[Rfam]
RNA sequence: CUCUUAUCAAGAGCGGCGGAGGGAUAGGCCCUGCGAUGCCCAGCAACCGGUGAGUGACGAACUCACAAUGGUGCUAAUUCCUACAGAUUUUUAAUCGGAUCUGACAGAUAAGGG
Numbered sequence: 001c002u003c004u005u006a007u008c009a010a011g012a013g014c015g016g017c018g019g020a021g022g023g024a025u026a027g028g029c030c031c032u033g034c035g036a037u038g039c040c041c042a043g044c045a046a047c048c049g050g051u052g053a054g055u056g057a058c059g060a061a062c063u064c065a066c067a068a069u070g071g072u073g074c075u076a077a078u079u080c081c082u083a084c085a086g087a088u089u090u091u092u093a094a095u096c097g098g099a100u101c102u103g104a105c106a107g108a109u110a111a112g113g114g
Base pairs, nucleotide, nucleotide: 001114002113003112004111005110006109007108008107013041015040016039017038021031022030023029025083026082027081028080042075043074044073045072047071048070050066051065052064053063054062079106084103085102086101087100088099089098

A member of the RNA family "SAM riboswitch aptamer (S box leader)" from Viridibacillus arenosi, 114 nucleotides long. NCBI's taxonomy places the organism under Bacteria, Bacillati, Caryophanaceae, Viridibacillus, Viridibacillus arenosi. The SAM riboswitch is found upstream of a number of genes which code for proteins involved in methionine or cysteine biosynthesis in Gram-positive bacteria. The SAM riboswitch acts at the level of transcription termination control.